[Rfam]
RNA: ylbH leader
Organism: Paenactinomyces guangxiensis
RNA sequence: AAAAAAAUGGCUCGCGUGAUAUGGCGCGAGCCCAUGGUAUCUUUCACAACCAUUGUGUCAGAUACUAAAUGGGAGAGGAGAAACCGGAGGAAGAGCUUAUGGGGAAACGUAAGUCUUCUCCGCGG
Numbered sequence: 001a002a003a004a005a006a007a008u009g010g011c012u013c014g015c016g017u018g019a020u021a022u023g024g025c026g027c028g029a030g031c032c033c034a035u036g037g038u039a040u041c042u043u044u045c046a047c048a049a050c051c052a053u054u055g056u057g058u059c060a061g062a063u064a065c066u067a068a069a070u071g072g073g074a075g076a077g078g079a080g081a082a083a084c085c086g087g088a089g090g091a092a093g094a095g096c097u098u099a100u101g102g103g104g105a106a107a108c109g110u111a112a113g114u115c116u117u118c119u120c121c122g123c124g125g
Stems, first nucleotide, its partner, number of pairs: 011030007031073005085122004090118004095114005